[Rfam]
A member of the RNA family "U1 spliceosomal RNA" from Phrynocephalus forsythii, 165 nucleotides long. The family's RNA type in Rfam is spliceosomal small nuclear RNA. The organism belongs to Phrynocephalus, within Eukaryota.

RNA sequence: CUACUCACCUGGCAGGGGGGAAUACCAUGAUCACGAAGGUGGUUUUUCCAGGGUGAGGCUCAUCCAUUGCACUCCGGGUGUGCUGACCCCUGCGAUUUCCCCAAAUCCGGGAAACUCGACUGCAUAAUUUGUGAUAGUAGGGGACUGUGUUCGCGCCUUCCCCUA
Numbered sequence: 001c002u003a004c005u006c007a008c009c010u011g012g013c014a015g016g017g018g019g020g021a022a023u024a025c026c027a028u029g030a031u032c033a034c035g036a037a038g039g040u041g042g043u044u045u046u047u048c049c050a051g052g053g054u055g056a057g058g059c060u061c062a063u064c065c066a067u068u069g070c071a072c073u074c075c076g077g078g079u080g081u082g083c084u085g086a087c088c089c090c091u092g093c094g095a096u097u098u099c100c101c102c103a104a105a106u107c108c109g110g111g112a113a114a115c116u117c118g119a120c121u122g123c124a125u126a127a128u129u130u131g132u133g134a135u136a137g138u139a140g141g142g143g144a145c146u147g148u149g150u151u152c153g154c155g156c157c158u159u160c161c162c163c164u165a
Base pairs, nucleotide, nucleotide: 012123013122014121015120016049017048018047019046020045021044024043025042026041027040028039050091051090052089053088055087057084058083059082061080062079063078064077065076093118094117095116096114097113098112100110101109139164140163141162142161143160144159147156148155149154